[Rfam]
The record is a 117-nucleotide RNA from Pseudooceanicola nanhaiensis, which matches "ALIL pseudoknot" in Rfam. The literature on the family includes a 2008 paper in J Biol Chem by Mazauric et al., "Apical loop-internal loop RNA pseudoknots: a new type of stimulator of -1 translational frameshifting in bacteria". The family's RNA type in Rfam is cis-regulatory element. Taxonomically the source falls in Pseudooceanicola (Bacteria, Pseudomonadati, Rhodobacterales, Paracoccaceae). Pairs were carried over by alignment from the consensus structure, which is taken from published work.
RNA sequence: CGCUUUUUUCGCUCAGGCGGAGCUCGACCGCCCUACGAGGAAAUGAAGAUGUUCAUCGAUGAGCAUCGCGACCAGUAUGGGAUCGAGCCGAUCUGCCGUGUGCUGCCGAUCGCCCCG
Number, nucleotide and partner (000 for none) at each position: 001c000002g000003c000004u000005u000006u000007u000008u000009u000010c000011g000012c000013u000014c000015a000016g032017g031018c030019g029020g028021a000022g000023c000024u000025c000026g000027a000028c020029c019030g018031c017032c016033c000034u000035a000036c000037g000038a000039g000040g000041a000042a000043a000044u000045g000046a000047a000048g000049a000050u000051g000052u000053u000054c000055a000056u000057c000058g000059a000060u000061g000062a000063g000064c000065a000066u000067c000068g000069c000070g000071a000072c000073c000074a000075g000076u000077a000078u117079g116080g115081g114082a000083u000084c000085g000086a000087g000088c000089c112090g111091a000092u109093c108094u000095g106096c105097c000098g103099u000100g000101u000102g000103c098104u000105g096106c095107c000108g093109a092110u000111c090112g089113c000114c081115c080116c079117g078